[Rfam]
RNA: Group II catalytic intron D1-D4-6
RNA sequence: AAAGUCCUUGUUGGGCAAGGCCUAACCAGCCACCCAUAUCGAGUGUUGCGCCAAAACUGGUAACAGCAAGGUGAAGUGUACACAGAGAACCAUAUAGGCCAUAAGGAGGACCAUAACUCCUGAAGCACAUUCAGCCUCGUUAACGUGUGUUCGGAAACGGACAAAGUGCAGGUGACCACGUGUUUAACGUCACGGAAGUCAAUACAAAAGAAUCAUUAAAGGUGAGAUUCCGGAGGGCCUGUCGGGGUCAGAGAACA
Number, nucleotide and partner (000 for none) at each position: 001a000002a000003a000004g000005u000006c000007c000008u000009u000010g000011u000012u036013g035014g034015g033016c000017a000018a000019g031020g030021c029022c000023u225024a000025a223026c222027c000028a000029g021030c020031c019032a000033c015034c014035c013036a012037u000038a000039u086040c085041g000042a000043g083044u082045g081046u080047u078048g077049c073050g072051c071052c070053a000054a000055a000056a000057c066058u065059g064060g000061u000062a000063a000064c059065a058066g057067c000068a000069a000070g052071g051072u050073g049074a000075a000076g000077u048078g047079u000080a046081c045082a044083c043084a000085g040086a039087g000088a000089a000090c000091c000092a000093u000094a000095u000096a000097g000098g000099c000100c000101a000102u000103a000104a000105g000106g000107a000108g000109g000110a000111c000112c000113a000114u000115a000116a000117c000118u000119c000120c000121u000122g000123a000124a000125g000126c000127a000128c000129a000130u000131u251132c000133a000134g248135c247136c246137u245138c244139g243140u000141u000142a000143a000144c000145g000146u000147g000148u000149g000150u000151u000152c000153g000154g000155a000156a000157a000158c000159g000160g000161a000162c000163a000164a000165a000166g000167u000168g242169c241170a240171g239172g238173u237174g200175a199176c198177c000178a000179c194180g193181u192182g191183u000184u000185u000186a000187a000188c000189g000190u000191c182192a181193c180194g179195g000196a000197a000198g176199u175200c174201a000202a000203u000204a000205c236206a000207a000208a000209a000210g230211a229212a228213u227214c226215a000216u000217u000218a000219a000220a000221g000222g026223u025224g000225a023226g214227a213228u212229u211230c210231c000232g000233g000234a000235g000236g205237g173238c172239c171240u170241g169242u168243c139244g138245g137246g136247g135248u134249c000250a000251g131252a000253g000254a000255a000256c000257a000